[Rfam]
RNA sequence: UAUUGUAUAUAUGACUGACGGAAAGUGGAGUGAACCACGGGGAGUAUAGUUAUGAAUUUUAGCCGACCGUCUGGGCAAUUUAC
Numbered sequence: 001u002a003u004u005g006u007a008u009a010u011a012u013g014a015c016u017g018a019c020g021g022a023a024a025g026u027g028g029a030g031u032g033a034a035c036c037a038c039g040g041g042g043a044g045u046a047u048a049g050u051u052a053u054g055a056a057u058u059u060u061a062g063c064c065g066a067c068c069g070u071c072u073g074g075g076c077a078a079u080u081u082a083c
Base pairs, nucleotide, nucleotide: 004052005051008048009047010046011045012044015041016040017071018070019069020068021067025038026037027036028035060078062076063075064074
Shown here is an 83-nucleotide RNA sequence from Hathewaya proteolytica, a member of the family "ZMP/ZTP riboswitch aptamer (pfl RNA motif)". NCBI's taxonomy places the organism under Bacteria, Bacillota, Clostridia, Clostridiaceae, Hathewaya proteolytica. Pairs were carried over by alignment from the consensus structure, which is taken from published work.